[Rfam]
RNA sequence: UCCAUGGGGAAAGAAUCAUCUUUCGAGGCUUUCAUACGGAGCGUCAGCUCAUGAUGCCUUGGGGAAAGUCUCCGGCAGUAGAUUGCAGGCGGAAACGUCGAUGGGUCACAUAACUCAUCAGCAGUGAGGAGUCAGGUCGCAGAAAUGGUUCUUACUUGUUUUGAUUGGUUGACACCUUAGCCUCUUGCUAUUGUUGGUGUUGACUAGUUGGAGCUUGUAUUUAUUGAGCUAUAGAUGUGUCUGACAAUGCACUGCUCUAUUCAAGAGCUUCUUUAGCUCUUUGAUUGGGAGGCUUCUCCUGAUAUUCUGCACUGGAUACUCUUAUCUAAACCAUAGUUAUGAUGAUUGUCAACAUUGUUGUUGAUAACCCAAUGGAGCUCACUUUUUUCCAUGG
Numbered sequence: 001u002c003c004a005u006g007g008g009g010a011a012a013g014a015a016u017c018a019u020c021u022u023u024c025g026a027g028g029c030u031u032u033c034a035u036a037c038g039g040a041g042c043g044u045c046a047g048c049u050c051a052u053g054a055u056g057c058c059u060u061g062g063g064g065a066a067a068g069u070c071u072c073c074g075g076c077a078g079u080a081g082a083u084u085g086c087a088g089g090c091g092g093a094a095a096c097g098u099c100g101a102u103g104g105g106u107c108a109c110a111u112a113a114c115u116c117a118u119c120a121g122c123a124g125u126g127a128g129g130a131g132u133c134a135g136g137u138c139g140c141a142g143a144a145a146u147g148g149u150u151c152u153u154a155c156u157u158g159u160u161u162u163g164a165u166u167g168g169u170u171g172a173c174a175c176c177u178u179a180g181c182c183u184c185u186u187g188c189u190a191u192u193g194u195u196g197g198u199g200u201u202g203a204c205u206a207g208u209u210g211g212a213g214c215u216u217g218u219a220u221u222u223a224u225u226g227a228g229c230u231a232u233a234g235a236u237g238u239g240u241c242u243g244a245c246a247a248u249g250c251a252c253u254g255c256u257c258u259a260u261u262c263a264a265g266a267g268c269u270u271c272u273u274u275a276g277c278u279c280u281u282u283g284a285u286u287g288g289g290a291g292g293c294u295u296c297u298c299c300u301g302a303u304a305u306u307c308u309g310c311a312c313u314g315g316a317u318a319c320u321c322u323u324a325u326c327u328a329a330a331c332c333a334u335a336g337u338u339a340u341g342a343u344g345a346u347u348g349u350c351a352a353c354a355u356u357g358u359u360g361u362u363g364a365u366a367a368c369c370c371a372a373u374g375g376a377g378c379u380c381a382c383u384u385u386u387u388u389c390c391a392u393g394g
Base pairs, nucleotide, nucleotide: 002394003393004392005391006390007389008388009387010386011385014347015346016345018343019342020341023062024061025060026059027058028057029056039050040049041048042047067379068378070377071376072375073374088099089098090097091096100119101118102117103116104115105114288299289298290297291296349364350363351362352361353360354359
RNA: RNase MRP